[Rfam]
RNA sequence: CACCCACUCGCGACAAAGCGUCGGGGGGCGCUUGACCGGAAUUGGAACAGGGGCCGGUCACGUGCGCGAUGGGGAAGCCUGGGGCCGGUAGUCGGGGGACUGCCGGCCCCUUUUUU
Number, nucleotide and partner (000 for none) at each position: 001c000002a000003c073004c072005c071006a070007c000008u069009c068010g067011c066012g065013a063014c062015a000016a033017a032018g031019c030020g029021u000022c000023g000024g000025g000026g000027g000028g000029c020030g019031c018032u017033u016034g059035a058036c057037c056038g055039g054040a000041a000042u051043u050044g000045g000046a000047a000048c000049a000050g043051g042052g000053g000054c039055c038056g037057g036058u035059c034060a000061c000062g014063u013064g000065c012066g011067c010068g009069a008070u006071g005072g004073g003074g000075a000076a000077g000078c000079c000080u000081g110082g109083g108084g107085c106086c105087g104088g103089u102090a101091g100092u099093c098094g000095g000096g000097g000098g093099a092100c091101u090102g089103c088104c087105g086106g085107c084108c083109c082110c081111u000112u000113u000114u000115u000116u000
Shown here is a 116-nucleotide sequence from Pseudoxanthomonas suwonensis, a member of the family "Xanthomonadaceae sRNA asX1".
Pairs were carried over by alignment from the consensus structure, which was predicted with CMfinder.
The source organism's lineage runs through Bacteria, Pseudomonadota, Gammaproteobacteria, Lysobacterales and Pseudoxanthomonas suwonensis.